This 242-nucleotide RNA from Parnassius apollo belongs to the Rfam family "RNase MRP". Its family is annotated with rRNA processing, ribonuclease MRP activity and ribonuclease MRP complex in the Gene Ontology. Taxonomically the source falls in Parnassius (Eukaryota, Dicondylia, Pterygota, Obtectomera). The family's RNA type in Rfam is ribozyme. Rfam describes the family as follows. RNase MRP is an enzymatically active ribonucleoprotein with two distinct roles in eukaryotes.

RNA sequence: GAGUUCCGAUCAGUUCAAUCUUCGGGGUUACAUACAGAGUCACUAUGAUUCCAUUUACCCUGUGGAAAGUCCCCGGAGCUAGGGCGGAAAGCGCUCGUAUCGUGGUGAUACAGGCCGGGUUGGCGCCAUAGGGAAGGCUUUUACCUGUAUGGUUGUCGACCCGUAGCGUUGCUCAGAGCAAAGGCGAUGUUGAAAGGGAUAAUGAUAUAUCCUAACCAAAUGGGGCUUACUCGGUAAGAACU
Numbered sequence: 001g002a003g004u005u006c007c008g009a010u011c012a013g014u015u016c017a018a019u020c021u022u023c024g025g026g027g028u029u030a031c032a033u034a035c036a037g038a039g040u041c042a043c044u045a046u047g048a049u050u051c052c053a054u055u056u057a058c059c060c061u062g063u064g065g066a067a068a069g070u071c072c073c074c075g076g077a078g079c080u081a082g083g084g085c086g087g088a089a090a091g092c093g094c095u096c097g098u099a100u101c102g103u104g105g106u107g108a109u110a111c112a113g114g115c116c117g118g119g120u121u122g123g124c125g126c127c128a129u130a131g132g133g134a135a136g137g138c139u140u141u142u143a144c145c146u147g148u149a150u151g152g153u154u155g156u157c158g159a160c161c162c163g164u165a166g167c168g169u170u171g172c173u174c175a176g177a178g179c180a181a182a183g184g185c186g187a188u189g190u191u192g193a194a195a196g197g198g199a200u201a202a203u204g205a206u207a208u209a210u211c212c213u214a215a216c217c218a219a220a221u222g223g224g225g226c227u228u229a230c231u232c233g234g235u236a237a238g239a240a241c242u
Stems, first nucleotide, its partner, number of pairs: 002242005009235003014194006023062006037051006067228003071225004083095004097111004113167001116163010126152004136145002196213006